RNA sequence: AUUAAAUAAAAUAACGUACUUCGUAUAUCCUCGAUAAUAUGGUUCGAAAGUUUCUACCGGAGCACCGUAAAUGCUCUGACUAUGAAGGCGGAUUAUCUUUGA
Numbered sequence: 001a002u003u004a005a006a007u008a009a010a011a012u013a014a015c016g017u018a019c020u021u022c023g024u025a026u027a028u029c030c031u032c033g034a035u036a037a038u039a040u041g042g043u044u045c046g047a048a049a050g051u052u053u054c055u056a057c058c059g060g061a062g063c064a065c066c067g068u069a070a071a072u073g074c075u076c077u078g079a080c081u082a083u084g085a086a087g088g089c090g091g092a093u094u095a096u097c098u099u100u101g102a
Stems, first nucleotide, its partner, number of pairs: 019087007031047004058078007
Rfam assigns this 102-nucleotide RNA sequence from Oceanobacillus limi to the family "Purine riboswitch aptamer". Lineage of the source: Bacteria > Bacillati > Bacilli > Caryophanales > Oceanobacillus. Riboswitches are metabolite binding domains within certain messenger RNAs that serve as precision sensors for their corresponding targets. A search with the family's covariance model found it, with a score of 86 bits.